The record is a 146-nucleotide sequence from Lentibacillus amyloliquefaciens, which matches "FMN riboswitch aptamer (RFN element)" in Rfam.

RNA sequence: ACAUUCCUUCGGGGCAGGGUGCAAUCCCCGACCGACGGUGAUGAGGCAUAGCCUCAAAGUCCGUGACCCGUGCGGCAUAAAGCCAAGCGGUGGACCCGGUGAAACUCCGGGACCGACAGUGACAGUCUGGAUGGGAGAAGGAAUUU
Dot-bracket structure: ..((((((((......(((.......))).[[((((((....................[[))))...((...................))....(((((.......)))))]])).(((.....]]))).......))))))))..